[Rfam]
RNA sequence: GGAAGCGAGCGUAAAAACACGGCUCCGGUCGGUAGUCCGGACGCGGAACGCGGCGCGGCGGCAAUCGCGCCGAUCGCUUCCGUCAGUAACCUUCCCCCCUCGGGAUGUCCAUCGCUCGAUCAUGCUUA
Numbered sequence: 001g002g003a004a005g006c007g008a009g010c011g012u013a014a015a016a017a018c019a020c021g022g023c024u025c026c027g028g029u030c031g032g033u034a035g036u037c038c039g040g041a042c043g044c045g046g047a048a049c050g051c052g053g054c055g056c057g058g059c060g061g062c063a064a065u066c067g068c069g070c071c072g073a074u075c076g077c078u079u080c081c082g083u084c085a086g087u088a089a090c091c092u093u094c095c096c097c098c099c100u101c102g103g104g105a106u107g108u109c110c111a112u113c114g115c116u117c118g119a120u121c122a123u124g125c126u127u128a
Base pairs, nucleotide, nucleotide: 004120006118007117008116009115010114011113022042025040026039027038028037043083044082045081046080047079048078093105094104095103096102
Notes:
Shown here is a 128-nucleotide RNA from Cohnella xylanilytica, a member of the family "azaaromatic riboswitch aptamer (yjdF RNA)". It scores 76 bits against the family's covariance model. NCBI's taxonomy places the organism under Bacteria, Bacillati, Bacilli, Paenibacillaceae, Cohnella.